[Rfam]
RNA: Small nucleolar RNA SNORA9
RNA sequence: GUGCAAGCCUCCAGCGUGCUUGGGUCUGGGGUGACCCUGUGCAUUCCUAUAGUGCUUGCUAGAACAUUUUGGAACGGUUUGAGGCCUUGUCCUGCUGCAUCCGGAGCAAGGUUAUAGAAAUUUCAGACAAUC
Numbered sequence: 001g002u003g004c005a006a007g008c009c010u011c012c013a014g015c016g017u018g019c020u021u022g023g024g025u026c027u028g029g030g031g032u033g034a035c036c037c038u039g040u041g042c043a044u045u046c047c048u049a050u051a052g053u054g055c056u057u058g059c060u061a062g063a064a065c066a067u068u069u070u071g072g073a074a075c076g077g078u079u080u081g082a083g084g085c086c087u088u089g090u091c092c093u094g095c096u097g098c099a100u101c102c103g104g105a106g107c108a109a110g111g112u113u114a115u116a117g118a119a120a121u122u123u124c125a126g127a128c129a130a131u132c
Stems, first nucleotide, its partner, number of pairs: 003059006017043003022037005070125005085111006092104003